[Rfam]
Shown here is a 97-nucleotide RNA sequence from Tindallia californiensis, a member of the family "Glycine riboswitch aptamer". Rfam links the family to the GO term glycine biosynthetic process. The match comes from Rfam's covariance-model search (40 bits). The pairing is the family consensus, mapped onto this sequence.
RNA sequence: CUCUGGAAAGAUCCGCAAGGACGCCGAAGGUGCAAUGCAGCCAGGUGUUUCAAAAAUAAAUAACCUGGAAGCAGAAUCUCUCAGGCUUACGACAGAG
Numbered sequence: 001c002u003c004u005g006g007a008a009a010g011a012u013c014c015g016c017a018a019g020g021a022c023g024c025c026g027a028a029g030g031u032g033c034a035a036u037g038c039a040g041c042c043a044g045g046u047g048u049u050u051c052a053a054a055a056a057u058a059a060a061u062a063a064c065c066u067g068g069a070a071g072c073a074g075a076a077u078c079u080c081u082c083a084g085g086c087u088u089a090c091g092a093c094a095g096a097g
Stems, first nucleotide, its partner, number of pairs: 001097005012021003023086003026082002030080001032078001036073002